[Rfam]
RNA sequence: GACCGUGUGGCCAAAUGGAUAAGGCGUCGGAUUUCAGAUCCGGAGAUCGCAGGUUCGAAUCCUGUCACGGUUG
Numbered sequence: 001g002a003c004c005g006u007g008u009g010g011c012c013a014a015a016u017g018g019a020u021a022a023g024g025c026g027u028c029g030g031a032u033u034u035c036a037g038a039u040c041c042g043g044a045g046a047u048c049g050c051a052g053g054u055u056c057g058a059a060u061c062c063u064g065u066c067a068c069g070g071u072u073g
Stems, first nucleotide, its partner, number of pairs: 001072007010025003027043005049065005
RNA: tRNA
Organism: Chrysodeixis includens